[Rfam]
This 320-nucleotide RNA sequence from Neogale vison belongs to the Rfam family "Metazoan signal recognition particle RNA". The family's RNA type in Rfam is non-coding RNA gene. The family's consensus secondary structure is taken from published work.

RNA sequence: ACCGGGCGUGGUGCCCACGCUUGUAGGCCCAGCUACUCAGCAGUCUGAGGCUGGAGGAUCACUUGAGCCCAGGAGUUCUGGGCUAUCGUGCGCCGAUCAGGCGUCGAUAUAUGCCGAUCAGGUGUCCACACUAAGUUCGGCAUCAAUAUAGUGACCUCCUGGCAGCGGGGGACCACCAGGUUGCCUAAGGAGGGGUGAACCGGCCCAGGCUGGAAACAGAGCAGGUUAGUGCUCCCGUGCUGAUUAGUAGUUGGGAUCGCACCUGUGAAUAGCCUCUGUGCUCCAGCCUGAGUGCAACAUGUAGCCAGACCCUGUCUCUU
Numbered sequence: 001a002c003c004g005g006g007c008g009u010g011g012u013g014c015c016c017a018c019g020c021u022u023g024u025a026g027g028c029c030c031a032g033c034u035a036c037u038c039a040g041c042a043g044u045c046u047g048a049g050g051c052u053g054g055a056g057g058a059u060c061a062c063u064u065g066a067g068c069c070c071a072g073g074a075g076u077u078c079u080g081g082g083c084u085a086u087c088g089u090g091c092g093c094c095g096a097u098c099a100g101g102c103g104u105c106g107a108u109a110u111a112u113g114c115c116g117a118u119c120a121g122g123u124g125u126c127c128a129c130a131c132u133a134a135g136u137u138c139g140g141c142a143u144c145a146a147u148a149u150a151g152u153g154a155c156c157u158c159c160u161g162g163c164a165g166c167g168g169g170g171g172a173c174c175a176c177c178a179g180g181u182u183g184c185c186u187a188a189g190g191a192g193g194g195g196u197g198a199a200c201c202g203g204c205c206c207a208g209g210c211u212g213g214a215a216a217c218a219g220a221g222c223a224g225g226u227u228a229g230u231g232c233u234c235c236c237g238u239g240c241u242g243a244u245u246a247g248u249a250g251u252u253g254g255g256a257u258c259g260c261a262c263c264u265g266u267g268a269a270u271a272g273c274c275u276c277u278g279u280g281c282u283c284c285a286g287c288c289u290g291a292g293u294g295c296a297a298c299a300u301g302u303a304g305c306c307a308g309a310c311c312c313u314g315u316c317u318c319u320u
Stems, first nucleotide, its partner, number of pairs: 001044002004022008027041002047318005053312002059307001062304002065295001067293002070290004078286005084280003088276001090274001092273002095270001097268002119265007126254002130251004135245001137243007144183004149178001151176003156171006184190002192235006202227004210219003
Notes: Its Rfam clan is "SRP clan". Rfam describes the family as follows. The signal recognition particle (SRP) is a universally conserved ribonucleoprotein.